Description:
A member of the RNA family "TPP riboswitch aptamer (THI element)" from Alteraurantiacibacter buctensis, 109 nucleotides long. A search with the family's covariance model found it, with a score of 56 bits. The source organism's lineage runs through Bacteria, Pseudomonadota, Alphaproteobacteria, Sphingomonadales and Alteraurantiacibacter.
[Rfam]
RNA sequence: CAGCCAUCCCCGGGGAGCCUGCUGUGGCUGAGAGGGGCAGGUAAGCUCUGCCCGACCCGUUGAACCUGAACCCGUUAGCACGGGCGGAGGGAAGGGCCGGUCGCCAGCG
Numbered sequence: 001c002a003g004c005c006a007u008c009c010c011c012g013g014g015g016a017g018c019c020u021g022c023u024g025u026g027g028c029u030g031a032g033a034g035g036g037g038c039a040g041g042u043a044a045g046c047u048c049u050g051c052c053c054g055a056c057c058c059g060u061u062g063a064a065c066c067u068g069a070a071c072c073c074g075u076u077a078g079c080a081c082g083g084g085c086g087g088a089g090g091g092a093a094g095g096g097c098c099g100g101u102c103g104c105c106a107g108c109g
Stems, first nucleotide, its partner, number of pairs: 007096003011059004017028003035053007065090003071084004